[Rfam]
RNA sequence: GGUUGAACAGGUUUUAUAGCUUGCUUCAAGAAUUUUUGGCUUCCAGGGUGGGAAGCU
Numbered sequence: 001g002g003u004u005g006a007a008c009a010g011g012u013u014u015u016a017u018a019g020c021u022u023g024c025u026u027c028a029a030g031a032a033u034u035u036u037u038g039g040c041u042u043c044c045a046g047g048g049u050g051g052g053a054a055g056c057u
Stems, first nucleotide, its partner, number of pairs: 003029003006025001008023004038057007
Dot-bracket structure: ..((((.((((........)))).).)))........(((((((......)))))))

The record is a 57-nucleotide RNA, which matches "Na+ riboswitch aptamer (DUF1646)" in Rfam. The family's consensus secondary structure is taken from published work. A reference for the family is White et al. (2022), "Na(+) riboswitches regulate genes for diverse physiological processes in bacteria", Nat Chem Biol. It is one of the family's seed sequences. Gene Ontology terms of the family: regulation of gene expression and sodium ion binding.